[Rfam]
RNA sequence: UGCUCCGGUGGCGUCGGCGCCUGACCCCUGAAGAACCAGGAGGGAAAGAACCGCACCAAGCCCCACCAGGCCCCGCUGUCACCCGGCCGGGCCCACUCACUCCCCCGGGUGAACAUCACCGUCUGGACUGACUUUCGGGCCCCCGGCUCCCCUGCGCUCAGCGCCAACGGCCGCCGCGCAUAUGCCACGACGCCGCACCUCUAGACAUACGACGGCCUCCGCCGGGACUGGCAUCCCCUAUGGCGGGGGCCUGACCACCAAGGAAGAAGACAGCUUCCCG
Numbered sequence: 001u002g003c004u005c006c007g008g009u010g011g012c013g014u015c016g017g018c019g020c021c022u023g024a025c026c027c028c029u030g031a032a033g034a035a036c037c038a039g040g041a042g043g044g045a046a047a048g049a050a051c052c053g054c055a056c057c058a059a060g061c062c063c064c065a066c067c068a069g070g071c072c073c074c075g076c077u078g079u080c081a082c083c084c085g086g087c088c089g090g091g092c093c094c095a096c097u098c099a100c101u102c103c104c105c106c107g108g109g110u111g112a113a114c115a116u117c118a119c120c121g122u123c124u125g126g127a128c129u130g131a132c133u134u135u136c137g138g139g140c141c142c143c144c145g146g147c148u149c150c151c152c153u154g155c156g157c158u159c160a161g162c163g164c165c166a167a168c169g170g171c172c173g174c175c176g177c178g179c180a181u182a183u184g185c186c187a188c189g190a191c192g193c194c195g196c197a198c199c200u201c202u203a204g205a206c207a208u209a210c211g212a213c214g215g216c217c218u219c220c221g222c223c224g225g226g227a228c229u230g231g232c233a234u235c236c237c238c239u240a241u242g243g244c245g246g247g248g249g250c251c252u253g254a255c256c257a258c259c260a261a262g263g264a265a266g267a268a269g270a271c272a273g274c275u276u277c278c279c280g
Stems, first nucleotide, its partner, number of pairs: 007259004016083002019080001097112006128176001129160003214251005220245003224237004262278005
RNA: Streptomyces sRNA 4677
Organism: Streptomyces sp. NRRL S-1521